[Rfam]
RNA sequence: AAACGUUCUCAGGGCGGGGUGGAAGUCCCCACCGGCGGUAAUUGCGCCACGCGCAUAGCCCGCGAGCGCUUCCCGGUCGCCACGGCGAGGGGAAGGUCAGCAGACCCGGUGUGAUCCCGGGGCCGACGGUCACAGUCCGGAUGAAGAGAGAACGGGA
Numbered sequence: 001a002a003a004c005g006u007u008c009u010c011a012g013g014g015c016g017g018g019g020u021g022g023a024a025g026u027c028c029c030c031a032c033c034g035g036c037g038g039u040a041a042u043u044g045c046g047c048c049a050c051g052c053g054c055a056u057a058g059c060c061c062g063c064g065a066g067c068g069c070u071u072c073c074c075g076g077u078c079g080c081c082a083c084g085g086c087g088a089g090g091g092g093a094a095g096g097u098c099a100g101c102a103g104a105c106c107c108g109g110u111g112u113g114a115u116c117c118c119g120g121g122g123c124c125g126a127c128g129g130u131c132a133c134a135g136u137c138c139g140g141a142u143g144a145a146g147a148g149a150g151a152a153c154g155g156g157a
Stems, first nucleotide, its partner, number of pairs: 004154007017029003031136002033125002035063004058123002066101002105121005127139003
RNA: FMN riboswitch aptamer (RFN element)
Organism: Pseudomonas sp. FeS53a